[Rfam]
RNA: Bacterial RNase P class A
RNA sequence: GCUGCAAACGGGUUAUCGUUCGUUUGAUUUUUCGAACGAAAGGAAAGUCCGGACAGUAUAGAGCAACACACCGGUUAAUAGCCGGUCCGGCGCUGAGAUUUCGGUAAACCGGGAAGAUAGUGCCACAGAAAAUUACCGUCCCGAUUUUUAUCGGGAUAAGGGUGAAAACGUGAGGUAAGAGCUCACGAUAAUUACAAGUAAUUGUAAUUAUGGGUAAACCUUGUGUACUGCAAUGCCACGUAAAUCCCGGUAUGUCGCAAGGCAUUAUAAGCUGCUCGUUUAUAUUUCCGCUUUCGCGGAAUAACGGGAAGGGUAGGCAGCAAGAUUGUUGCAGUAAUGCAACAGCCAGAUAAAUGAUAACCGUCCGUCGCCUGGCGGACCACAGAAUCCGGCUUACAUGUUUGCAGUAAUU
Numbered sequence: 001g002c003u004g005c006a007a008a009c010g011g012g013u014u015a016u017c018g019u020u021c022g023u024u025u026g027a028u029u030u031u032u033c034g035a036a037c038g039a040a041a042g043g044a045a046a047g048u049c050c051g052g053a054c055a056g057u058a059u060a061g062a063g064c065a066a067c068a069c070a071c072c073g074g075u076u077a078a079u080a081g082c083c084g085g086u087c088c089g090g091c092g093c094u095g096a097g098a099u100u101u102c103g104g105u106a107a108a109c110c111g112g113g114a115a116g117a118u119a120g121u122g123c124c125a126c127a128g129a130a131a132a133u134u135a136c137c138g139u140c141c142c143g144a145u146u147u148u149u150a151u152c153g154g155g156a157u158a159a160g161g162g163u164g165a166a167a168a169c170g171u172g173a174g175g176u177a178a179g180a181g182c183u184c185a186c187g188a189u190a191a192u193u194a195c196a197a198g199u200a201a202u203u204g205u206a207a208u209u210a211u212g213g214g215u216a217a218a219c220c221u222u223g224u225g226u227a228c229u230g231c232a233a234u235g236c237c238a239c240g241u242a243a244a245u246c247c248c249g250g251u252a253u254g255u256c257g258c259a260a261g262g263c264a265u266u267a268u269a270a271g272c273u274g275c276u277c278g279u280u281u282a283u284a285u286u287u288c289c290g291c292u293u294u295c296g297c298g299g300a301a302u303a304a305c306g307g308g309a310a311g312g313g314u315a316g317g318c319a320g321c322a323a324g325a326u327u328g329u330u331g332c333a334g335u336a337a338u339g340c341a342a343c344a345g346c347c348a349g350a351u352a353a354a355u356g357a358u359a360a361c362c363g364u365c366c367g368u369c370g371c372c373u374g375g376c377g378g379a380c381c382a383c384a385g386a387a388u389c390c391g392g393c394u395u396a397c398a399u400g401u402u403u404g405c406a407g408u409a410a411u412u
Base pairs, nucleotide, nucleotide: 001408002407003406004405005404006403007402008401009400010397011362012361013360014359015358016357017356019040020039021038022037023036024035025034026033027032045395046394047393049392050391051390052389053388054230055229056228057227061295062294063293066226067225068224069223070222071085072084073083074082075081086114087112088111089110090109115221116220120219121218122215123214124213136161137160138157139156140155141154142153143152144151145150169187170186171185172184173183174182189210190209191208192207193206194205195204196203197202234319235318236317237316245309246308247307248306249305286301287300288299289298290297326345327344328343329342330341331340332339333338
Dot-bracket structure: (((((((((((((((((.(((((((((....)))))))))....[[[.[[[[[((((...[[[..((((((((((.....)))))(((((..................)))).)((...(((((...........((((((((((....))))))))..)).......((((((.......)))))).(((((((((....)))))))))..)))..)))))))))))))...((((.......(((((....................................(((((..]]].)))))...)))))......))))......((((((((....))))))))..........))))))).........................]]]]]]]].)..)))))))))....